[Rfam]
Nucleotides: 096
Base pairs, nucleotide, nucleotide: 002061003060004059005058006057007056008055009054012031013030014029015028016027017026020092021091022090023089024088036053037052038051039050040049041048063079064078065077066076067075068074
Number, partner (000 for none) and nucleotide at each position: 001000a002061u003060u004059g005058g006057u007056a008055u009054g010000u011000a012031a013030g014029c015028u016027a017026c018000u019000u020092c021091u022090u023089c024088c025000a026017g027016u028015a029014g030013c031012u032000g033000c034000g035000u036053c037052a038051u039050a040049a041048c042000a043000u044000c045000a046000a047000g048041g049040u050039u051038a052037u053036g054009c055008a056007u057006a058005c059004u060003g061002a062000g063079c064078c065077g066076a067075a068074g069000c070000u071000c072000a073000g074068c075067u076066u077065c078064g079063g080000u081000c082000c083000u084000c085000c086000a087000a088024g089023g090022a091021a092020g093000a094000c095000c096000a

Pseudoknot of tRNA-like structure: a 96-nucleotide sequence from Hordeivirus poae. The base pairs follow the family's consensus structure, which is taken from published work. The family has 2 seed sequences and 3 matches in Rfam 15.1. A reference for the family is Mans et al. (1991), "tRNA-like structures. Structure, function and evolutionary significance", Eur J Biochem. Rfam's curators put it in the seed alignment. The family's RNA type in Rfam is cis-regulatory element. The source organism's lineage runs through Viruses, Orthornavirae, Kitrinoviricota, Virgaviridae and Hordeivirus poae.